The family of this 342-nucleotide RNA from Collichthys lucidus is "Vertebrate telomerase RNA". The family is grouped with related families in Rfam's "Telomerase clan". NCBI's taxonomy places the organism under Eukaryota, Actinopterygii, Neopterygii, Eurypterygia, Collichthys. It is annotated as a non-coding RNA gene. The family has 37 seed sequences and 523 matches in Rfam 15.1. A reference for the family is Fragnet et al. (2005), "Comparative functional study of the viral telomerase RNA based on natural mutations", J Biol Chem.
[Rfam]
RNA sequence: UUUCGCGGGGUGUCUCAUCUAACCCUAAAUUAGGGCGGCCUCCUGUACUUAACGUUGACUGGUUUCUUGUCUGGCUUCCAGUAAGCAACAGGAGGUGUUUCAAGAGUGCGAACAACGACGACUUAAAAAAAGCCCAGACAAUCACCCUGCCGUGUUCAGUUUCCCGUUCAGAAACGCCGUCAAUGUCCUGCCGUGGUCAGCUCGGCUGCCGCGAAGAGUUGGUCUCUGCUGCUGCGGUGUUUUCAUGUCGGGAUUAACUCGCGACUGAGCAGAGUAAAACUGAGCAGGGUGACUUUAGCAGAUCUCCCUGUGGUCUGUUAGGAAGCCCGCGCUCAAACACCU
Numbered sequence: 001u002u003u004c005g006c007g008g009g010g011u012g013u014c015u016c017a018u019c020u021a022a023c024c025c026u027a028a029a030u031u032a033g034g035g036c037g038g039c040c041u042c043c044u045g046u047a048c049u050u051a052a053c054g055u056u057g058a059c060u061g062g063u064u065u066c067u068u069g070u071c072u073g074g075c076u077u078c079c080a081g082u083a084a085g086c087a088a089c090a091g092g093a094g095g096u097g098u099u100u101c102a103a104g105a106g107u108g109c110g111a112a113c114a115a116c117g118a119c120g121a122c123u124u125a126a127a128a129a130a131a132g133c134c135c136a137g138a139c140a141a142u143c144a145c146c147c148u149g150c151c152g153u154g155u156u157c158a159g160u161u162u163c164c165c166g167u168u169c170a171g172a173a174a175c176g177c178c179g180u181c182a183a184u185g186u187c188c189u190g191c192c193g194u195g196g197u198c199a200g201c202u203c204g205g206c207u208g209c210c211g212c213g214a215a216g217a218g219u220u221g222g223u224c225u226c227u228g229c230u231g232c233u234g235c236g237g238u239g240u241u242u243u244c245a246u247g248u249c250g251g252g253a254u255u256a257a258c259u260c261g262c263g264a265c266u267g268a269g270c271a272g273a274g275u276a277a278a279a280c281u282g283a284g285c286a287g288g289g290u291g292a293c294u295u296u297a298g299c300a301g302a303u304c305u306c307c308c309u310g311u312g313g314u315c316u317g318u319u320a321g322g323a324a325g326c327c328c329g330c331g332c333u334c335a336a337a338c339a340c341c342u
Stems, first nucleotide, its partner, number of pairs: 005150008039095005054086003058082004070138003073134003076130002155269007162253005168247001173241008192213005198208004215227004282334004287328004293322001299317004